[Rfam]
RNA: Rhizobiales sRNA Atu_C8
RNA sequence: GAAAAAUCUUAACGUACUUAUCGUGGUGGGACGGCGCAUGGGCAGGAUGGUAUAACCAUCCGGCGAAAGCACCCAUGCGCUGAACGAGGCUCCUCUAGGGGCCUUUUUUUAUGUCUUCAA
Numbered sequence: 001g002a003a004a005a006a007u008c009u010u011a012a013c014g015u016a017c018u019u020a021u022c023g024u025g026g027u028g029g030g031a032c033g034g035c036g037c038a039u040g041g042g043c044a045g046g047a048u049g050g051u052a053u054a055a056c057c058a059u060c061c062g063g064c065g066a067a068a069g070c071a072c073c074c075a076u077g078c079g080c081u082g083a084a085c086g087a088g089g090c091u092c093c094u095c096u097a098g099g100g101g102c103c104u105u106u107u108u109u110u111a112u113g114u115c116u117u118c119a120a
Stems, first nucleotide, its partner, number of pairs: 007028001009026001029116004033081010045061006063070002086105008